[Rfam]
RNA sequence: AGGUAGUUAUAUGACUGACGGAAGUGGAAUUGACCACAGGAAAUAUAAUGUUAAGAGCCGACCGUCUGGGCAAAGAGU
Numbered sequence: 001a002g003g004u005a006g007u008u009a010u011a012u013g014a015c016u017g018a019c020g021g022a023a024g025u026g027g028a029a030u031u032g033a034c035c036a037c038a039g040g041a042a043a044u045a046u047a048a049u050g051u052u053a054a055g056a057g058c059c060g061a062c063c064g065u066c067u068g069g070g071c072a073a074a075g076a077g078u
Base pairs, nucleotide, nucleotide: 003052006049007048008047009046010045011044012043015040016039017066018065019064020063021062024037025036026035027034057071058070059069
The family of this 78-nucleotide sequence from Longibaculum muris is "ZMP/ZTP riboswitch aptamer (pfl RNA motif)". The source organism's lineage runs through Bacteria, Bacillota, Erysipelotrichia, Coprobacillaceae and Longibaculum. Gene Ontology terms of the family: regulation of purine nucleotide biosynthetic process and one-carbon metabolic process. It scores 54 bits against the family's covariance model.